[Rfam]
RNA sequence: ACGCCUCAGGGGCAAUCCGGGUCCGCCGCAAACUCUCGGAUCCUUGGGGCGGUCGGCCGGCAUUCAGGCUCAAUGCGGUAUCCUCGUGCCGCUGCCGGGUGCCGGUCGACCAUCUU
Numbered sequence: 001a002c003g004c005c006u007c008a009g010g011g012g013c014a015a016u017c018c019g020g021g022u023c024c025g026c027c028g029c030a031a032a033c034u035c036u037c038g039g040a041u042c043c044u045u046g047g048g049g050c051g052g053u054c055g056g057c058c059g060g061c062a063u064u065c066a067g068g069c070u071c072a073a074u075g076c077g078g079u080a081u082c083c084u085c086g087u088g089c090c091g092c093u094g095c096c097g098g099g100u101g102c103c104g105g106u107c108g109a110c111c112a113u114c115u116u
Stems, first nucleotide, its partner, number of pairs: 003050008016040006051111011
A member of the RNA family "EcpR1" from Aureimonas sp. Leaf454, 116 nucleotides long.
The organism belongs to Aureimonas, within Bacteria.
On this family, see del Val et al., Mol Microbiol 2007: "Identification of differentially expressed small non-coding RNAs in the legume endosymbiont Sinorhizobium meliloti by comparative genomics".
Rfam describes the family as follows. Perviously named SmelC291, SmrC10, or Sra33. According to its overproduction phenotype it was renamed Elongated Cell Phenotype RNA1. Induced by stress,EcpR1 negatively regulates cell cycle master regulatory genes dnaA and gcrA at post-transcriptional level by base pairing between its strongly conserved GC-rich loop and the target mRNAs. It's regulation is hfq-independent but requires RNase E to regulate dnaA.
The base pairs follow the family's consensus structure, which was predicted with WAR.